[Rfam]
RNA: Ribosomal S15 leader
RNA sequence: UAGGUUAGCUGUAAAUAUGCACGGUUAACCUGAAUCUUAUUUAUUUGCAUAUUCACUAGGAGAUAUAUCAUGGCUCUAUCUGCAGCAGAAAAAGCAGCAAUCGUUAAAGACUAUCAGCGUGGCGAA
Numbered sequence: 001u002a003g004g005u006u007a008g009c010u011g012u013a014a015a016u017a018u019g020c021a022c023g024g025u026u027a028a029c030c031u032g033a034a035u036c037u038u039a040u041u042u043a044u045u046u047g048c049a050u051a052u053u054c055a056c057u058a059g060g061a062g063a064u065a066u067a068u069c070a071u072g073g074c075u076c077u078a079u080c081u082g083c084a085g086c087a088g089a090a091a092a093a094g095c096a097g098c099a100a101u102c103g104u105u106a107a108a109g110a111c112u113a114u115c116a117g118c119g120u121g122g123c124g125a126a
Stems, first nucleotide, its partner, number of pairs: 007026006047080001049079002059077004